[Rfam]
RNA sequence: CGCGAGACUAGAGUCACAUUCUGACACAUCCUCAUUGUCCUGGUGUGCUAGAGUCCUCGCAGAUCAACCUUCUCUGCUUAUUCAUUGGUCGCUGCUCCAUGUUGCCCGACCAAUCACCAGCAUAGAUACACCA
Numbered sequence: 001c002g003c004g005a006g007a008c009u010a011g012a013g014u015c016a017c018a019u020u021c022u023g024a025c026a027c028a029u030c031c032u033c034a035u036u037g038u039c040c041u042g043g044u045g046u047g048c049u050a051g052a053g054u055c056c057u058c059g060c061a062g063a064u065c066a067a068c069c070u071u072c073u074c075u076g077c078u079u080a081u082u083c084a085u086u087g088g089u090c091g092c093u094g095c096u097c098c099a100u101g102u103u104g105c106c107c108g109a110c111c112a113a114u115c116a117c118c119a120g121c122a123u124a125g126a127u128a129c130a131c132c133a
Stems, first nucleotide, its partner, number of pairs: 002060005007054003012049002015047006023039004072125002075122004084114005090108002
Small nucleolar RNA SNORA3/SNORA45 family: a 133-nucleotide RNA sequence from Denticeps clupeoides. About the family: The members of this family belong to the H/ACA class of snoRNAs which are thought to guide the sites of modification of uridines to pseudouridines. This family includes mouse snoMBI-28 and human homologues ACA3 (SNORA3) and ACA3-2 (SNORA45). Both ACA3 and ACA3-2 share the same host gene. MBI-28, ACA3 and ACA3-2 are all predicted to guide the pseudouridylation of residues in 28S rRNA. Rfam links the family to the GO terms nucleolus and RNA processing. The literature on the family includes a 2005 paper in Nucleic Acids Res by Gu et al., "A novel experimental approach for systematic identification of box H/ACA snoRNAs from eukaryotes". Its Rfam clan is "SNORA3 clan".